[Rfam]
Bacterial RNase P class A: a 417-nucleotide RNA from Roseovarius azorensis. The family's RNA type in Rfam is ribozyme.
RNA sequence: GCGGAGGGCCGGAUGGCCGCGGUCCCGGAGAAGAUCCGGGGGCGAGGAAAGUCCGGACUCCACAAGGCAACGGUGCCGGGUAACGCCCGGCCGGGGCAACCCGAGGGAAAGCGCCACAGAAAAGAAACCGCCCGCGCGUGUCGUAGGCAAGGGUGAAACGGUGGGGUAAGAGCCCACCGCGGGACGGGCAACCGGACCGGCACGGCAAGCCCCACCGGGAGCAAUGCCAAAUAGGGACCGCACGCGGGGGCUGGUCCGGGAUCACGGUCCCGCGAUACCGCCCGCAGGCACGUCUUGGCCCGGCGGUCCGGGUUGGCAGCUGGAGGCGCGCUGGUGACAGAGCGUCAAGAGGAAUGGUCAUCCAUCCCGUUCCCCGGAGCGGGAGGACAGAAUCCGGCUUACAGGCUCUCCGCGCGU
Numbered sequence: 001g002c003g004g005a006g007g008g009c010c011g012g013a014u015g016g017c018c019g020c021g022g023u024c025c026c027g028g029a030g031a032a033g034a035u036c037c038g039g040g041g042g043c044g045a046g047g048a049a050a051g052u053c054c055g056g057a058c059u060c061c062a063c064a065a066g067g068c069a070a071c072g073g074u075g076c077c078g079g080g081u082a083a084c085g086c087c088c089g090g091c092c093g094g095g096g097c098a099a100c101c102c103g104a105g106g107g108a109a110a111g112c113g114c115c116a117c118a119g120a121a122a123a124g125a126a127a128c129c130g131c132c133c134g135c136g137c138g139u140g141u142c143g144u145a146g147g148c149a150a151g152g153g154u155g156a157a158a159c160g161g162u163g164g165g166g167u168a169a170g171a172g173c174c175c176a177c178c179g180c181g182g183g184a185c186g187g188g189c190a191a192c193c194g195g196a197c198c199g200g201c202a203c204g205g206c207a208a209g210c211c212c213c214a215c216c217g218g219g220a221g222c223a224a225u226g227c228c229a230a231a232u233a234g235g236g237a238c239c240g241c242a243c244g245c246g247g248g249g250g251c252u253g254g255u256c257c258g259g260g261a262u263c264a265c266g267g268u269c270c271c272g273c274g275a276u277a278c279c280g281c282c283c284g285c286a287g288g289c290a291c292g293u294c295u296u297g298g299c300c301c302g303g304c305g306g307u308c309c310g311g312g313u314u315g316g317c318a319g320c321u322g323g324a325g326g327c328g329c330g331c332u333g334g335u336g337a338c339a340g341a342g343c344g345u346c347a348a349g350a351g352g353a354a355u356g357g358u359c360a361u362c363c364a365u366c367c368c369g370u371u372c373c374c375c376g377g378a379g380c381g382g383g384a385g386g387a388c389a390g391a392a393u394c395c396g397g398c399u400u401a402c403a404g405g406c407u408c409u410c411c412g413c414g415c416g417u
Base pairs, nucleotide, nucleotide: 001413002412003411004410005409006408007407008406009405010404011402012362013361014360015359016358017357018356020044021043023041024040025039026038027037028036049400050399051398053397054396055395056394057393058221059220060219061218066296067295069293071217072216073215074214075213076090077089078088079087080086091105092103093102094101095100106212107211111210112209113206114205115204128152129151130148131147132146134144135143136142160178161177162176163175164174165173179201180199181198182197185194186193187192225318226317227316228315235309236308237307238306239305240304287301288300291297326345327344328343329342331340332339333338